[Rfam]
RNA sequence: CUCCUUGGAGCUGUGGUUGAAAGUCGAAGCCAGUCGCAGGCGAAACGACCCACGUAAGGUAACUUUGGUUACUGAGCAUGGUGCGGCUUUGGGGUAAGUCCUGCCUUAACUCUAACGGGUUAUAACAAUAAGAGAAGAGUAGUAGUGAGGGAUAAAGUUCCUGAGCAAACCUCUCAGCAGGCGAGUGUGGGGGCAAAGACCAGGUCAGUCUGAGGAA
Numbered sequence: 001c002u003c004c005u006u007g008g009a010g011c012u013g014u015g016g017u018u019g020a021a022a023g024u025c026g027a028a029g030c031c032a033g034u035c036g037c038a039g040g041c042g043a044a045a046c047g048a049c050c051c052a053c054g055u056a057a058g059g060u061a062a063c064u065u066u067g068g069u070u071a072c073u074g075a076g077c078a079u080g081g082u083g084c085g086g087c088u089u090u091g092g093g094g095u096a097a098g099u100c101c102u103g104c105c106u107u108a109a110c111u112c113u114a115a116c117g118g119g120u121u122a123u124a125a126c127a128a129u130a131a132g133a134g135a136a137g138a139g140u141a142g143u144a145g146u147g148a149g150g151g152a153u154a155a156a157g158u159u160c161c162u163g164a165g166c167a168a169a170c171c172u173c174u175c176a177g178c179a180g181g182c183g184a185g186u187g188u189g190g191g192g193g194c195a196a197a198g199a200c201c202a203g204g205u206c207a208g209u210c211u212g213a214g215g216a217a
Base pairs, nucleotide, nucleotide: 002216003215004214005213006212007211008210009209011208012207013206014202015201016200017199018198027188029186030040032088033087034086035085036084037083038082049081050080057073058072061069063067079195100181101180102179103178104177105132106131107130108129136174137173138172139171145166146165151159152158153157